Plastid-psbA-2 3UTR RNA: a 62-nucleotide sequence from Tetracentron sinense. The family's consensus secondary structure was predicted with LocARNA. Rfam classes the family as a cis-regulatory element. Rfam describes the family as follows. Plastid psbA-2 is a non-coding RNA (ncRNA) present in plastids. The family is grouped with related families in Rfam's "Plastid-psbA 3UTR RNA clan". The match comes from Rfam's covariance-model search (58 bits).
RNA sequence: UUAAAGGAGCAAUAACAAAAUUCUUGUUCUAUCAAGAGUCUUGGUAUUGCUCCUUCAUUUAG
Numbered sequence: 001u002u003a004a005a006g007g008a009g010c011a012a013u014a015a016c017a018a019a020a021u022u023c024u025u026g027u028u029c030u031a032u033c034a035a036g037a038g039u040c041u042u043g044g045u046a047u048u049g050c051u052c053c054u055u056c057a058u059u060u061a062g
Base pairs, nucleotide, nucleotide: 002057004055005054006053007052008051009050010049011048012047013046014045016043017042018041022037023036024035025034026033